[Rfam]
RNA sequence: GUACUGUUUGGUUACAGUUGUUCAACCAGUUACGAGCCUAACUAACUGUAACCAGUUGAACAACUGAACCCAAAGGGUGCAAA
Numbered sequence: 001g002u003a004c005u006g007u008u009u010g011g012u013u014a015c016a017g018u019u020g021u022u023c024a025a026c027c028a029g030u031u032a033c034g035a036g037c038c039u040a041a042c043u044a045a046c047u048g049u050a051a052c053c054a055g056u057u058g059a060a061c062a063a064c065u066g067a068a069c070c071c072a073a074a075g076g077g078u079g080c081a082a083a
Base pairs, nucleotide, nucleotide: 003078004077005076007074008073009072010071015066016065017064018063019062020061021060022059023058024057025056026055029052030051031050032049033048
mir-582 microRNA precursor family: an 83-nucleotide RNA from Moschus moschiferus. A reference for the family is Lui et al. (2007), "Patterns of known and novel small RNAs in human cervical cancer", Cancer Res. Lineage of the source: Eukaryota > Gnathostomata > Dipnotetrapodomorpha > Boreoeutheria > Moschus. The base pairs follow the family's consensus structure, which was predicted with RNAalifold. The family has 14 seed sequences and 128 matches in Rfam 15.1.